[Rfam]
RNA sequence: UGGCAGGUUAAGUUACAGAGCAGCUGAUUCGUGCUGCGCUGUCGUUCCCCCUGCACAAAACAACCUGUUUCCUACUAUCCCUGUCUGCCUGCACCCCACGGUUUACAGGGACGCUUGGUCUCAGACAC
Number, nucleotide and partner (000 for none) at each position: 001u000002g000003g054004c053005a052006g051007g050008u000009u000010a000011a000012g000013u000014u000015a042016c041017a040018g039019a000020g037021c036022a035023g034024c033025u000026g000027a000028u000029u000030c000031g000032u000033g024034c023035u022036g021037c020038g000039c018040u017041g016042u015043c000044g000045u000046u000047c000048c000049c000050c007051c006052u005053g004054c003055a000056c000057a000058a000059a000060a000061c000062a000063a000064c000065c000066u000067g000068u000069u000070u000071c000072c000073u000074a000075c000076u000077a000078u000079c000080c109081c108082u107083g106084u000085c000086u000087g102088c101089c000090u000091g000092c000093a000094c000095c000096c000097c000098a000099c000100g000101g088102u087103u000104u000105a000106c083107a082108g081109g080110g000111a000112c000113g000114c000115u000116u000117g000118g000119u000120c000121u000122c000123a000124g000125a000126c000127a000128c000